[Rfam]
Shown here is a 47-nucleotide RNA from Punica granatum, a member of the family "Plastid-rpl16 group II-D1 intron".
From the family's description: Plastid-rpl16 is a non-coding RNA (ncRNA) recognised in plastids. It was recognised in and intronic region of a ribosome rpl16 gene.
The organism belongs to Punica, within Eukaryota.
A reference for the family is Richter et al. (2023), "Retrograde signaling in plants: A critical review focusing on the GUN pathway and beyond", Plant Commun.
A search with the family's covariance model found it, with a score of 58 bits.
RNA sequence: AAGAGCCUCGAGGAAAUAAAAACUGGGAAGAUUGACUCAAGAACAAA
Numbered sequence: 001a002a003g004a005g006c007c008u009c010g011a012g013g014a015a016a017u018a019a020a021a022a023c024u025g026g027g028a029a030g031a032u033u034g035a036c037u038c039a040a041g042a043a044c045a046a047a
Stems, first nucleotide, its partner, number of pairs: 007041002010038003015033003